[Rfam]
Nucleotides: 120
Stems, first nucleotide, its partner, number of pairs: 060082004065077004085099002088097003
Number, partner (000 for none) and nucleotide at each position: 001000c002000c003000c004000g005000u006000c007000c008000g009000c010000c011000c012000c013000g014000u015000g016000g017000a018000c019000g020000c021000c022000u023000u024000c025000c026000c027000c028000g029000c030000g031000c032000g033000g034000c035000g036000g037000a038000g039000g040000u041000c042000c043000c044000g045000g046000c047000u048000a049000c050000c051000c052000u053000g054000g055000c056000c057000g058000g059000g060082u061081g062080c063079g064000c065077c066076u067075u068074c069000c070000a071000g072000c073000a074068g075067a076066a077065g078000g079063c080062g081061c082060a083000a084000a085099g086098c087000c088097g089096a090095c091000a092000g093000c094000c095090g096089u097088c098086g099085c100000a101000c102000u103000c104000c105000a106000g107000g108000g109000a110000g111000c112000u113000c114000c115000u116000c117000a118000a119000u120000g